[Rfam]
chrB-a RNA: a 77-nucleotide RNA sequence from Sphingomonas tagetis.

RNA sequence: GGGAUGGGGGCCGCGAUCCCUCACGAGGCGUCAGCUGAAGAUUCGCAUCCAUUGUGAUCUUUCAAGGAUGCUUCAUG
Numbered sequence: 001g002g003g004a005u006g007g008g009g010g011c012c013g014c015g016a017u018c019c020c021u022c023a024c025g026a027g028g029c030g031u032c033a034g035c036u037g038a039a040g041a042u043u044c045g046c047a048u049c050c051a052u053u054g055u056g057a058u059c060u061u062u063c064a065a066g067g068a069u070g071c072u073u074c075a076u077g
Stems, first nucleotide, its partner, number of pairs: 005023006045071006
The organism belongs to Sphingomonas, within Bacteria. It is annotated as a cis-regulatory element. Pairs were carried over by alignment from the consensus structure, which is taken from published work.